[Rfam]
RNA sequence: CAAUGAAGCAAACAUGGUAAUGUGCACAAAAAUUGAAUUGGGUCUCUAGGUCUGCCCUCUCUGAUACCAUUUGGCUUUGAUUUGGGGGUAUGGUUUCGUAACAAAACA
Numbered sequence: 001c002a003a004u005g006a007a008g009c010a011a012a013c014a015u016g017g018u019a020a021u022g023u024g025c026a027c028a029a030a031a032a033u034u035g036a037a038u039u040g041g042g043u044c045u046c047u048a049g050g051u052c053u054g055c056c057c058u059c060u061c062u063g064a065u066a067c068c069a070u071u072u073g074g075c076u077u078u079g080a081u082u083u084g085g086g087g088g089u090a091u092g093g094u095u096u097c098g099u100a101a102c103a104a105a106a107c108a
Stems, first nucleotide, its partner, number of pairs: 013024003040091001042089003050081003054075003